[Rfam]
RNA sequence: GUCAGGAACCCCACGGAUACAUCCGAGGGCUUGUGAAAGCAAGUCCACACCUGACCAGUCUUAGUCUUUAUUGACUACGUUCGGGAAGAAAUUAGGUACCAGGGGGUGCAUUGCCAGCCCCUUGCUCUACGGCUACAUAUUAAACAUCUGUACAGGGUUAAGGAAGUGUAUGUAGCGAUAAACCUUUUCGAACCUUGACGAGGCAAACGUUAC
Number, nucleotide and partner (000 for none) at each position: 001g055002u054003c053004a052005g051006g050007a000008a000009c000010c029011c028012c000013a000014c025015g000016g023017a022018u000019a000020c000021a000022u017023c016024c000025g014026a000027g000028g011029g010030c043031u042032u041033g040034u000035g000036a000037a000038a000039g000040c033041a032042a031043g030044u000045c000046c000047a000048c000049a000050c006051c005052u004053g003054a002055c001056c000057a000058g199059u198060c197061u000062u000063a076064g075065u074066c073067u000068u000069u000070a000071u000072u000073g066074a065075c064076u063077a000078c000079g193080u192081u191082c190083g189084g188085g187086a186087a185088g184089a000090a000091a000092u000093u000094a000095g000096g130097u129098a000099c000100c124101a123102g122103g121104g120105g119106g118107u117108g000109c000110a000111u206112u205113g204114c203115c202116a000117g107118c106119c105120c104121c103122u102123u101124g100125c000126u000127c000128u000129a097130c096131g000132g176133c175134u174135a173136c172137a171138u170139a169140u168141u000142a000143a000144a167145c166146a000147u164148c163149u162150g000151u160152a159153c000154a000155g000156g000157g000158u000159u152160a151161a000162g149163g148164a147165a000166g145167u144168g140169u139170a138171u137172g136173u135174a134175g133176c132177g000178a000179u000180a000181a000182a000183c000184c088185u087186u086187u085188u084189c083190g082191a081192a080193c079194c000195u000196u000197g060198a059199c058200g000201a000202g115203g114204c113205a112206a111207a000208c000209g000210u000211u000212a000213c000
Shown here is a 213-nucleotide sequence from Dictyobacter vulcani, a member of the family "HNH endonuclease-associated RNA and ORF (HEARO) RNA". The base pairs follow the family's consensus structure, which is taken from published work. For this family Rfam cites "Exceptional structured noncoding RNAs revealed by bacterial metagenome analysis" (Weinberg et al., Nature, 2009).